[Rfam]
RNA sequence: GGGCCUGUAGCUCAGUUGGUUAGAGCAGGGGACUCAUAAUCCUUUGGUCGUGGGUUCAAGUCCCGCCGGGCCUA
Numbered sequence: 001g002g003g004c005c006u007g008u009a010g011c012u013c014a015g016u017u018g019g020u021u022a023g024a025g026c027a028g029g030g031g032a033c034u035c036a037u038a039a040u041c042c043u044u045u046g047g048u049c050g051u052g053g054g055u056u057c058a059a060g061u062c063c064c065g066c067c068g069g070g071c072c073u074a
Stems, first nucleotide, its partner, number of pairs: 001073007010026004028044005050066005